[Rfam]
The record is a 50-nucleotide RNA sequence from Rhizobium sp. NFR07, which matches "Guanidine-II riboswitch aptamer (mini-ykkC)" in Rfam. It scores 36 bits against the family's covariance model. Taxonomically the source falls in Rhizobium (Bacteria, Pseudomonadota, Alphaproteobacteria, Hyphomicrobiales). For this family Rfam cites "Identification of 22 candidate structured RNAs in bacteria using the CMfinder comparative genomics pipeline" (Weinberg et al., Nucleic Acids Res, 2007). Simpler in structure and has fewer highly conserved nucleotide positions than the ykkC-yxkD leader. Despite this each of its two stem-loop structures directly bind free guanidine. Therefore, mini-ykkC RNA motif represents a distinct class of guanidine-sensing RNAs. Its crystal structure was also determined.

RNA sequence: CUGCGAGGACGACCUCCCCCAGCAUGGGUGCAAUCGCCGGGACGACCCGG
Numbered sequence: 001c002u003g004c005g006a007g008g009a010c011g012a013c014c015u016c017c018c019c020c021a022g023c024a025u026g027g028g029u030g031c032a033a034u035c036g037c038c039g040g041g042a043c044g045a046c047c048c049g050g
Base pairs, nucleotide, nucleotide: 003018005016006015007014008013037050038049039048040047041046